[Rfam]
RNA sequence: AUGAAAGCGAUGAUAAGGCCAUGGGUUAUUUAUACCGGUUAACAGAGAGGGAAGGAUUGCUGGAAACUUCCUAACGCAGAAGAAUAAUCUACCCCCUUUGAGCUGCAAGGUGAAGUAUACAGUAACCUUUGCCGUUAGCUGCGUUAAAGCCAAUUGAGCUGCCGGCCUUUGUUUAUACUGGCAGGAAUCAGGGUGGAACCGCGAAUGACACAUUCGCCCCUAUA
Numbered sequence: 001a002u003g004a005a006a007g008c009g010a011u012g013a014u015a016a017g018g019c020c021a022u023g024g025g026u027u028a029u030u031u032a033u034a035c036c037g038g039u040u041a042a043c044a045g046a047g048a049g050g051g052a053a054g055g056a057u058u059g060c061u062g063g064a065a066a067c068u069u070c071c072u073a074a075c076g077c078a079g080a081a082g083a084a085u086a087a088u089c090u091a092c093c094c095c096c097u098u099u100g101a102g103c104u105g106c107a108a109g110g111u112g113a114a115g116u117a118u119a120c121a122g123u124a125a126c127c128u129u130u131g132c133c134g135u136u137a138g139c140u141g142c143g144u145u146a147a148a149g150c151c152a153a154u155u156g157a158g159c160u161g162c163c164g165g166c167c168u169u170u171g172u173u174u175a176u177a178c179u180g181g182c183a184g185g186a187a188u189c190a191g192g193g194u195g196g197a198a199c200c201g202c203g204a205a206u207g208a209c210a211c212a213u214u215c216g217c218c219c220c221u222a223u224a
Base pairs, nucleotide, nucleotide: 007103008102015098016097017096018095028085029084030083031082038075039074040073049072050071051070052069053068054067106131107130108128109127110126111125133143134142135141159184160183161182162181163180164179165178190221191220192219193218201217202216203215204214205213
RNA: T-box leader